[Rfam]
RNA: Trypanosomatid snoRNA TB10Cs3H1
Organism: Trypanosoma vivax
RNA sequence: AGCAGUGCCGCUAUGCGUCCCCACAGUCAAUGUGGUGCGAUGGUACGAAGCACGUGCAAGAC
Numbered sequence: 001a002g003c004a005g006u007g008c009c010g011c012u013a014u015g016c017g018u019c020c021c022c023a024c025a026g027u028c029a030a031u032g033u034g035g036u037g038c039g040a041u042g043g044u045a046c047g048a049a050g051c052a053c054g055u056g057c058a059a060g061a062c
Stems, first nucleotide, its partner, number of pairs: 002057003005053003012045003016042004021035004